[Rfam]
RNA sequence: UCAUCUCUCCCUAGGGAGAGAUCGACAUCUUCGAUGUCGAGUGAGGGC
Numbered sequence: 001u002c003a004u005c006u007c008u009c010c011c012u013a014g015g016g017a018g019a020g021a022u023c024g025a026c027a028u029c030u031u032c033g034a035u036g037u038c039g040a041g042u043g044a045g046g047g048c
Stems, first nucleotide, its partner, number of pairs: 004021007024038006
Record summary
This 48-nucleotide RNA sequence from Parvularcula maris belongs to the Rfam family "Whalefall-1 RNA". The family has 14 seed sequences and 134 matches in Rfam 15.1. The match comes from Rfam's covariance-model search (38 bits).